[Rfam]
This 207-nucleotide RNA sequence from Streptomyces harbinensis belongs to the Rfam family "c-di-AMP riboswitch aptamer (ydaO/yuaA leader)".
RNA sequence: ACCACCACUGCGCCACAACCGCUUGGCAGGAGCGGGGGACCCAGUCCGCCACCCGGCGGCCAUCAGCAAGGCCGGGCAGCGGAACGCCGGACCGGAACCCUCCGGUACGGCUCGGGGUGAAGCCGGGACGGAUCCGUCCGUCCCGGCCGGGCAACUCACUGACCCGAACCCGACAGCUCACCUCGCAGGCGUCCGGUGAGAAGGAUC
Numbered sequence: 001a002c003c004a005c006c007a008c009u010g011c012g013c014c015a016c017a018a019c020c021g022c023u024u025g026g027c028a029g030g031a032g033c034g035g036g037g038g039a040c041c042c043a044g045u046c047c048g049c050c051a052c053c054c055g056g057c058g059g060c061c062a063u064c065a066g067c068a069a070g071g072c073c074g075g076g077c078a079g080c081g082g083a084a085c086g087c088c089g090g091a092c093c094g095g096a097a098c099c100c101u102c103c104g105g106u107a108c109g110g111c112u113c114g115g116g117g118u119g120a121a122g123c124c125g126g127g128a129c130g131g132a133u134c135c136g137u138c139c140g141u142c143c144c145g146g147c148c149g150g151g152c153a154a155c156u157c158a159c160u161g162a163c164c165c166g167a168a169c170c171c172g173a174c175a176g177c178u179c180a181c182c183u184c185g186c187a188g189g190c191g192u193c194c195g196g197u198g199a200g201a202a203g204g205a206u207c
Stems, first nucleotide, its partner, number of pairs: 011191004019030002032186006042114001115171003123146010149165003
It scores 47 bits against the family's covariance model.